RNA sequence: AAUCAGAAAUUAACAUUUUAUCCUAAUAGAUUUUAGUGGCUAUGCUUAUGAGAUAGAUUAAAAUUGCCAUGAUCUGAAGAGGGAGGAUUUAUUUGUGUCCUCCUCCUAUAUGAAAUGGCUGAACAGAAAAUU
Numbered sequence: 001a002a003u004c005a006g007a008a009a010u011u012a013a014c015a016u017u018u019u020a021u022c023c024u025a026a027u028a029g030a031u032u033u034u035a036g037u038g039g040c041u042a043u044g045c046u047u048a049u050g051a052g053a054u055a056g057a058u059u060a061a062a063a064u065u066g067c068c069a070u071g072a073u074c075u076g077a078a079g080a081g082g083g084a085g086g087a088u089u090u091a092u093u094u095g096u097g098u099c100c101u102c103c104u105c106c107u108a109u110a111u112g113a114a115a116u117g118g119c120u121g122a123a124c125a126g127a128a129a130a131u132u
Base pairs, nucleotide, nucleotide: 002049011039013037014036066119067118068117069116084107085106086105087104
The family of this 132-nucleotide sequence from Myotis davidii is "Small nucleolar RNA SNORA29". The organism belongs to Myotis, within Eukaryota. The base pairs follow the family's consensus structure, which was predicted with PFOLD. The family is grouped with related families in Rfam's "SNORA20 clan". About the family: ACA29 is a member of the H/ACA class of snoRNA that guide the sites of modification of uridines to pseudouridines. For this family Rfam cites "RNomics: an experimental approach that identifies 201 candidates for novel, small, non-messenger RNAs in mouse" (Huttenhofer et al., EMBO J, 2001).